[Rfam]
RNA sequence: GCCGAGCCUAGUAACGUGGGCUUAUAAUCCAAGUGGGGGCAUUAAAUUGGUUGGAUAUUGGCCCAGACCAACUGGCUGGGCUUAGUGGUGCUUAUUCUGGCCUGCCCGUUCCAAGCUGGGAGCUGGGCCACGGGGCUUGUGCUAAGGCAUUGGCUUCUUGGCCCGUAGAGCGGAGGCACCGCGUUAGGCUGGUUUCACAGAGCAACGACCACUUCCCGCUCUCGGCAAUGGAAGGAUAACAGGCCGUUGUGUCGCUUGCCCAUUAAAGUCAGACUGGUGUUGACCCAAUUAAACAACCAAUUAU
Numbered sequence: 001g002c003c004g005a006g007c008c009u010a011g012u013a014a015c016g017u018g019g020g021c022u023u024a025u026a027a028u029c030c031a032a033g034u035g036g037g038g039g040c041a042u043u044a045a046a047u048u049g050g051u052u053g054g055a056u057a058u059u060g061g062c063c064c065a066g067a068c069c070a071a072c073u074g075g076c077u078g079g080g081c082u083u084a085g086u087g088g089u090g091c092u093u094a095u096u097c098u099g100g101c102c103u104g105c106c107c108g109u110u111c112c113a114a115g116c117u118g119g120g121a122g123c124u125g126g127g128c129c130a131c132g133g134g135g136c137u138u139g140u141g142c143u144a145a146g147g148c149a150u151u152g153g154c155u156u157c158u159u160g161g162c163c164c165g166u167a168g169a170g171c172g173g174a175g176g177c178a179c180c181g182c183g184u185u186a187g188g189c190u191g192g193u194u195u196c197a198c199a200g201a202g203c204a205a206c207g208a209c210c211a212c213u214u215c216c217c218g219c220u221c222u223c224g225g226c227a228a229u230g231g232a233a234g235g236a237u238a239a240c241a242g243g244c245c246g247u248u249g250u251g252u253c254g255c256u257u258g259c260c261c262a263u264u265a266a267a268g269u270c271a272g273a274c275u276g277g278u279g280u281u282g283a284c285c286c287a288a289u290u291a292a293a294c295a296a297c298c299a300a301u302u303a304u
Stems, first nucleotide, its partner, number of pairs: 001040003004023007028037003045302009056291002058288003061284001063282001065280001068277003072272006078261004085255002088253001090250001092249001098246007106235002109233005115226009125164006132157006139150004172216003175212001182207003189200003
Dot-bracket structure: ((((((((((......)))))))....(((....))))))....(((((((((..((((((.(.(..(((.((((((((((...((.(.(.(.....(((((((.((.(((((.(((((((((.((((((.((((((.((((....)))).)))))).)))))).......((((......(((....(((......)))....)))....).))).)))))))))..)))))))....)))))))..))..)))..)))).....))))))..)))..).).).))).))..)))))))))..

Notes: Shown here is a 304-nucleotide RNA from Salvia splendens, a member of the family "Plant signal recognition particle RNA". Rfam classes the family as a non-coding RNA gene. Gene Ontology terms of the family: signal recognition particle, endoplasmic reticulum targeting and SRP-dependent cotranslational protein targeting to membrane, signal sequence recognition. The organism belongs to core Calosphace, within Eukaryota. It scores 219 bits against the family's covariance model.